[Rfam]
RNA: ALIL pseudoknot
Nucleotides: 117
Stems, first nucleotide, its partner, number of pairs: 016032005079116004089112002092109005098103001
Number, partner (000 for none) and nucleotide at each position: 001000g002000g003000c004000g005000u006000a007000u008000u009000u010000u011000g012000c013000a014000c015000a016032g017031g018030c019029g020028g021000a022000g023000c024000u025000c026000g027000a028020c029019c030018g031017c032016c033000c034000a035000u036000u037000u038000c039000g040000g041000a042000a043000a044000u045000g046000a047000u048000c049000c050000g051000g052000u053000u054000u055000a056000u057000c058000a059000a060000a061000g062000a063000g064000c065000a066000c067000c068000g069000g070000g071000a072000g073000g074000u075000a076000u077000g078000u079116g080115g081114g082113g083000u084000c085000g086000a087000g088000c089112c090111g091000a092109u093108c094107u095106g096105u097000c098103g099000u100000g101000u102000u103098u104000u105096g106095c107094a108093g109092a110000u111090c112089g113082c114081c115080c116079c117000u